[Rfam]
RNA sequence: AGUAUCUUUCGGGGUCAGGUGAAAUUCCUAGCCGGCGGUAAUGGAGUAACGUCCUCAGCCCGCGACGGGGAAGAGCGUAUUCCCCCUGAUUUGGUGAAAUUCCAAAGCCGACAGUUAAAGUCUGGAUGGGAGAAAGAUUAU
Numbered sequence: 001a002g003u004a005u006c007u008u009u010c011g012g013g014g015u016c017a018g019g020u021g022a023a024a025u026u027c028c029u030a031g032c033c034g035g036c037g038g039u040a041a042u043g044g045a046g047u048a049a050c051g052u053c054c055u056c057a058g059c060c061c062g063c064g065a066c067g068g069g070g071a072a073g074a075g076c077g078u079a080u081u082c083c084c085c086c087u088g089a090u091u092u093g094g095u096g097a098a099a100u101u102c103c104a105a106a107g108c109c110g111a112c113a114g115u116u117a118a119a120g121u122c123u124g125g126a127u128g129g130g131a132g133a134a135a136g137a138u139u140a141u
Base pairs, nucleotide, nucleotide: 004138005137006136007135008134009133010132017029018028019027031121032120033110034109035063036062037061038060058108059107067085068084090106091105092104093103094102112124113123114122

A member of the RNA family "FMN riboswitch aptamer (RFN element)" from Salimicrobium jeotgali, 141 nucleotides long. Its family is annotated with FMN binding in the Gene Ontology. The organism belongs to Salimicrobium, within Bacteria.